[Rfam]
RNA sequence: AGUUAGUAUCAGUAGGUGAGGCUACCUUAGGGAUACGGAUUGCUGCCGCAAAAUUGUGGAGACACGAUGAGUUGGUCAACAGUCUAUGUCGCAUCAAGGCAUAGAAUAAUGUAAUAACAUUGCCCUAAGAAGCUAAAGCUUGAAUGAUAAAGAACAGAU
Numbered sequence: 001a002g003u004u005a006g007u008a009u010c011a012g013u014a015g016g017u018g019a020g021g022c023u024a025c026c027u028u029a030g031g032g033a034u035a036c037g038g039a040u041u042g043c044u045g046c047c048g049c050a051a052a053a054u055u056g057u058g059g060a061g062a063c064a065c066g067a068u069g070a071g072u073u074g075g076u077c078a079a080c081a082g083u084c085u086a087u088g089u090c091g092c093a094u095c096a097a098g099g100c101a102u103a104g105a106a107u108a109a110u111g112u113a114a115u116a117a118c119a120u121u122g123c124c125c126u127a128a129g130a131a132g133c134u135a136a137a138g139c140u141u142g143a144a145u146g147a148u149a150a151a152g153a154a155c156a157g158a159u
Stems, first nucleotide, its partner, number of pairs: 007153001009151001011145001013097001015140003020134003026129007039115005046074001048072002055066004083105003088100003

M-box riboswitch aptamer (ykoK leader): a 159-nucleotide sequence from Anaerorhabdus furcosa. The match comes from Rfam's covariance-model search (99 bits). Lineage of the source: Bacteria > Erysipelotrichia > Erysipelotrichales > Erysipelotrichaceae > Anaerorhabdus.